[Rfam]
RNA sequence: CAGAGCUGAUUAAGCGGUUUGGUGCGGCUUCGAACGGGUAACAGCUCGUCGUUCAUACUUCUUCCUUUUACCUUGUUUGUUGCCUCUCCUUAUGGAUUU
Numbered sequence: 001c002a003g004a005g006c007u008g009a010u011u012a013a014g015c016g017g018u019u020u021g022g023u024g025c026g027g028c029u030u031c032g033a034a035c036g037g038g039u040a041a042c043a044g045c046u047c048g049u050c051g052u053u054c055a056u057a058c059u060u061c062u063u064c065c066u067u068u069u070a071c072c073u074u075g076u077u078u079g080u081u082g083c084c085u086c087u088c089c090u091u092a093u094g095g096a097u098u099u
Stems, first nucleotide, its partner, number of pairs: 002099003006095003021089002024086001026084003031079006037072004044065001048061001051058002

A member of the RNA family "mir-354 microRNA precursor family" from Caenorhabditis japonica, 99 nucleotides long. It scores 55 bits against the family's covariance model. For this family Rfam cites "Patterns of flanking sequence conservation and a characteristic upstream motif for microRNA gene identification" (Ohler et al., RNA, 2004). Its family is annotated with RISC complex and miRNA-mediated post-transcriptional gene silencing in the Gene Ontology. Pairs were carried over by alignment from the consensus structure, which was predicted with RNAalifold.